[Rfam]
RNA sequence: UUUACAUGAUGAAUACCUAUAUGUUACCUUUUUUUCUGGCAUCUCUAAUGUUAGAAUGCGAAGUUUAAGUACUAUCCAUUCGAUGAAUACACUCAUUGACAAAUAUCUGACA
Numbered sequence: 001u002u003u004a005c006a007u008g009a010u011g012a013a014u015a016c017c018u019a020u021a022u023g024u025u026a027c028c029u030u031u032u033u034u035u036c037u038g039g040c041a042u043c044u045c046u047a048a049u050g051u052u053a054g055a056a057u058g059c060g061a062a063g064u065u066u067a068a069g070u071a072c073u074a075u076c077c078a079u080u081c082g083a084u085g086a087a088u089a090c091a092c093u094c095a096u097u098g099a100c101a102a103a104u105a106u107c108u109g110a111c112a
Base pairs, nucleotide, nucleotide: 055080056079057078058077
The family of this 112-nucleotide RNA sequence from Torulaspora delbrueckii is "Small nucleolar RNA snR48". The match comes from Rfam's covariance-model search (99 bits). Its Rfam clan is "SNORD60 clan". It is annotated as a C/D-box small nucleolar RNA.